[Rfam]
RNA sequence: ACACUACUGUGCUUUAUGGCUUUCUAUUCCUAUGUGAUUUUUAUAUGGUGUCUCAUGUAGGGUUCAAAGCCAUUAGAUACAGAGUGA
Numbered sequence: 001a002c003a004c005u006a007c008u009g010u011g012c013u014u015u016a017u018g019g020c021u022u023u024c025u026a027u028u029c030c031u032a033u034g035u036g037a038u039u040u041u042u043a044u045a046u047g048g049u050g051u052c053u054c055a056u057g058u059a060g061g062g063u064u065c066a067a068a069g070c071c072a073u074u075a076g077a078u079a080c081a082g083a084g085u086g087a
Stems, first nucleotide, its partner, number of pairs: 002086004007082005013076002016073008026064001028062010
mir-135 microRNA precursor family: an 87-nucleotide sequence from Labeo rohita.
The base pairs follow the family's consensus structure, which was predicted with PFOLD.
The organism belongs to Labeo, within Eukaryota.
The literature on the family includes a 2002 paper in Curr Biol by Lagos-Quintana et al., "Identification of tissue-specific microRNAs from mouse".